[Rfam]
RNA sequence: GGUCAUGAGCGCCAGCGACAAGCCCCGGCUUGCUGGCCGGCAACCCUCCUUCCGCGGUGGGGUGCCCCGGGUGACGACCUGGCCGCGUUCGAGACCGCUCGUGGCAAGCGCGGGGA
Numbered sequence: 001g002g003u004c005a006u007g008a009g010c011g012c013c014a015g016c017g018a019c020a021a022g023c024c025c026c027g028g029c030u031u032g033c034u035g036g037c038c039g040g041c042a043a044c045c046c047u048c049c050u051u052c053c054g055c056g057g058u059g060g061g062g063u064g065c066c067c068c069g070g071g072u073g074a075c076g077a078c079c080u081g082g083c084c085g086c087g088u089u090c091g092a093g094a095c096c097g098c099u100c101g102u103g104g105c106a107a108g109c110g111c112g113g114g115g116a
Base pairs, nucleotide, nucleotide: 001079002078003077004076009038011037012036013035014034015033016032021030022029039066040065041064044062045061046060048057049056082105083104084103085102086101087100090097091096

Overview:
The family of this 116-nucleotide RNA sequence from Myceligenerans xiligouense is "SAM (S-adenosyl methionine) riboswitch aptamer". Rfam's curators write: SAM-IV is a mRNA element that regulates gene expression via direct sensing of S-adenosylmethionine (SAM or AdoMet). Rfam 15.1 lists 2,360 matches to the family in 1,305 species. The family is grouped with related families in Rfam's "SAM clan".